[Rfam]
RNA sequence: GUCGUGUCAGUGAUGUUUCAAACACAAAUGUCUGAACAUAUGAUAUUUCAAUGAUUCUCAUGAUGUUACUGAGACACGUU
Numbered sequence: 001g002u003c004g005u006g007u008c009a010g011u012g013a014u015g016u017u018u019c020a021a022a023c024a025c026a027a028a029u030g031u032c033u034g035a036a037c038a039u040a041u042g043a044u045a046u047u048u049c050a051a052u053g054a055u056u057c058u059c060a061u062g063a064u065g066u067u068a069c070u071g072a073g074a075c076a077c078g079u080u
Base pairs, nucleotide, nucleotide: 003078004077005076006075007074008073
RNA: Small nucleolar RNA SNORD72
Organism: Gadus morhua